A member of the RNA family "proV RNA" from Aquipseudomonas alcaligenes, 148 nucleotides long. It is annotated as a small RNA.
[Rfam]
RNA sequence: CGUCGCUGUCCUUUCAAGCCUGAACUGACAGACCUGGGCCCUCAGCCCUGGACCGAAGAACAGAAAACGGCGGAGCCAAUGUCUAAGGCGCCCGCCCUACAAGAAAUUUCGGAUGUACGCACACCUCAGGACGAGGUGUUGAUCGACC
Numbered sequence: 001c002g003u004c005g006c007u008g009u010c011c012u013u014u015c016a017a018g019c020c021u022g023a024a025c026u027g028a029c030a031g032a033c034c035u036g037g038g039c040c041c042u043c044a045g046c047c048c049u050g051g052a053c054c055g056a057a058g059a060a061c062a063g064a065a066a067a068c069g070g071c072g073g074a075g076c077c078a079a080u081g082u083c084u085a086a087g088g089c090g091c092c093c094g095c096c097c098u099a100c101a102a103g104a105a106a107u108u109u110c111g112g113a114u115g116u117a118c119g120c121a122c123a124c125c126u127c128a129g130g131a132c133g134a135g136g137u138g139u140u141g142a143u144c145g146a147c148c
Stems, first nucleotide, its partner, number of pairs: 006031005013024004033051002036048004120141001121139007
Pairs were carried over by alignment from the consensus structure, which is taken from published work.